[Rfam]
RNA: tRNA
RNA sequence: GCGGAUGUAACUCAAUCGGUAGAGUGCGAUCCUUCCAAGUUCGAGGUUGUGGGUUCGAGUCCCAUCAUCCGCU
Numbered sequence: 001g002c003g004g005a006u007g008u009a010a011c012u013c014a015a016u017c018g019g020u021a022g023a024g025u026g027c028g029a030u031c032c033u034u035c036c037a038a039g040u041u042c043g044a045g046g047u048u049g050u051g052g053g054u055u056c057g058a059g060u061c062c063c064a065u066c067a068u069c070c071g072c073u
Stems, first nucleotide, its partner, number of pairs: 001072007010025004027043003031039001049065005